[Rfam]
RNA: Small nucleolar RNA R160
RNA sequence: AGCAAAAUGAGGAAGUUAUACCAUCUGAAAGUUCACUGCUGAUAAUGCAUAGAUGGUCUUCAAAGUUCUCUGAUUGCU
Numbered sequence: 001a002g003c004a005a006a007a008u009g010a011g012g013a014a015g016u017u018a019u020a021c022c023a024u025c026u027g028a029a030a031g032u033u034c035a036c037u038g039c040u041g042a043u044a045a046u047g048c049a050u051a052g053a054u055g056g057u058c059u060u061c062a063a064a065g066u067u068c069u070c071u072g073a074u075u076g077c078u
Stems, first nucleotide, its partner, number of pairs: 001078005